[Rfam]
RNA sequence: AAGGUCGAGAGGCGCUGCAACGGGCGUGACGCCCGCCACGCUCGGCUGUACACCACCGAACAAGGGCGCCUCCUAUUC
Number, nucleotide and partner (000 for none) at each position: 001a000002a000003g047004g046005u045006c044007g043008a042009g000010a000011g000012g000013c000014g000015c000016u000017g000018c000019a000020a000021c035022g034023g033024g032025c031026g030027u000028g000029a000030c026031g025032c024033c023034c022035g021036c000037c000038a000039c000040g000041c000042u008043c007044g006045g005046c004047u003048g000049u000050a000051c000052a000053c000054c000055a000056c000057c000058g000059a000060a000061c000062a000063a000064g000065g000066g000067c000068g000069c000070c000071u000072c000073c000074u000075a000076u000077u000078c000